Notes
c-di-GMP-I riboswitch aptamer: an 83-nucleotide RNA sequence from Domibacillus epiphyticus. Taxonomically the source falls in Domibacillus (Bacteria, Bacillati, Bacillota, Bacillaceae). The match comes from Rfam's covariance-model search (82 bits).
RNA sequence: AUUGAAAAAUGGCAAACUUAUUGAAAAAUAAGGACGCAAAACCACAGAUCUAAAGCAGAUGCAAUGAUGGCUGGGUUGCCAAA
Numbered sequence: 001a002u003u004g005a006a007a008a009a010u011g012g013c014a015a016a017c018u019u020a021u022u023g024a025a026a027a028a029u030a031a032g033g034a035c036g037c038a039a040a041a042c043c044a045c046a047g048a049u050c051u052a053a054a055g056c057a058g059a060u061g062c063a064a065u066g067a068u069g070g071c072u073g074g075g076u077u078g079c080c081a082a083a
Stems, first nucleotide, its partner, number of pairs: 012037002017032006040077004045073003048068003055062002